The record is a 248-nucleotide part of an RNA from Chlorochromatium aggregatum, which matches "Bacterial large subunit ribosomal RNA" in Rfam.
Its family is annotated with ribosome and structural constituent of ribosome in the Gene Ontology.
RNA sequence: GCAGAUUUGAGGAAGCCUGCUCCUAGUACGAGAGGACCGGAGUGGACACACCUCUGGUGUAUCGGUUGUCACGCCAGUGGCAUAGCCGAGUAGCUAAGUGUGGAAGAGAUAACCGCUGAAAGCAUCUAAGCGGGAAACUCGUUCCAAGAUGAGAUCUGCCUGAAGAGCCGUUCAAGACUAGGACGUUGAUAGGUCGGGUGUGUAAGGCGUGUAAGCGCUUCAGCUAACCGAUACUAAUGGCUCGUUCG
Number, nucleotide and partner (000 for none) at each position: 001g159002c158003a157004g156005a155006u154007u153008u152009g000010a000011g145012g144013a143014a142015g000016c000017c045018u044019g043020c042021u041022c040023c039024u000025a000026g000027u000028a000029c000030g000031a000032g000033a000034g000035g000036a000037c000038c000039g023040g022041a021042g020043u019044g018045g017046a000047c102048a101049c100050a099051c098052c000053u000054c000055u096056g095057g094058u000059g000060u000061a000062u089063c088064g087065g086066u085067u082068g081069u080070c079071a078072c077073g000074c000075c000076a000077g072078u071079g070080g069081c068082a067083u000084a000085g066086c065087c064088g063089a062090g000091u000092a000093g000094c057095u056096a055097a000098g051099u050100g049101u048102g047103g000104a000105a000106g140107a139108g138109a000110u000111a000112a000113c133114c132115g131116c130117u129118g000119a000120a000121a000122g000123c000124a000125u000126c000127u000128a000129a117130g116131c115132g114133g113134g000135a000136a000137a000138c108139u107140c106141g000142u014143u013144c012145c011146a000147a000148g000149a000150u000151g000152a008153g007154a006155u005156c004157u003158g002159c001160c000161u000162g245163a000164a000165g243166a242167g241168c240169c185170g184171u183172u182173c181174a000175a000176g000177a000178c000179u000180a000181g173182g172183a171184c170185g169186u000187u000188g000189a000190u236191a235192g234193g232194u231195c230196g229197g228198g000199u000200g224201u000202g000203u000204a000205a000206g219207g218208c217209g216210u215211g000212u000213a000214a000215g210216c209217g208218c207219u206220u000221c000222a000223g000224c200225u000226a000227a000228c197229c196230g195231a194232u193233a000234c192235u191236a190237a000238u000239g000240g168241c167242u166243c165244g000245u162246u000247c000248g000